A member of the RNA family "Lysine riboswitch aptamer" from Enterococcus canis, 174 nucleotides long. Riboswitches are metabolite binding domains within certain messenger RNAs that serve as precision sensors for their corresponding targets. Allosteric rearrangement of mRNA structure is mediated by ligand binding, and this results in modulation of gene expression. This family includes riboswitches that sense lysine in a number of genes involved in lysine metabolism, including lysC. NCBI's taxonomy places the organism under Bacteria, Bacillati, Bacillota, Lactobacillales, Enterococcus. It scores 74 bits against the family's covariance model.
RNA sequence: AUAUGAGGUAGAGGUCGCGGUUCUGAUGAACCCAGUGGAGCGAGAGGUCGCGCUGAAGCUGGCAGAGGGAGCACCGCCGAAAUGUCAUACACACCUCUGGGUAUGAUGUUGGGACAGUAUGCGAAUAGCUGCUGGACUGUCUUAGUGGAGACACUAAGUUGCGCUAUGUUUUCU
Numbered sequence: 001a002u003a004u005g006a007g008g009u010a011g012a013g014g015u016c017g018c019g020g021u022u023c024u025g026a027u028g029a030a031c032c033c034a035g036u037g038g039a040g041c042g043a044g045a046g047g048u049c050g051c052g053c054u055g056a057a058g059c060u061g062g063c064a065g066a067g068g069g070a071g072c073a074c075c076g077c078c079g080a081a082a083u084g085u086c087a088u089a090c091a092c093a094c095c096u097c098u099g100g101g102u103a104u105g106a107u108g109u110u111g112g113g114a115c116a117g118u119a120u121g122c123g124a125a126u127a128g129c130u131g132c133u134g135g136a137c138u139g140u141c142u143u144a145g146u147g148g149a150g151a152c153a154c155u156a157a158g159u160u161g162c163g164c165u166a167u168g169u170u171u172u173c174u
Base pairs, nucleotide, nucleotide: 006169008167009166010165011164017077018076019075020074021073023071024070033061034060035059036058081110082109083108084107085106086105087104088103089102090101092099111138112137115134116133117132118131119130141158142157143156144155145154146153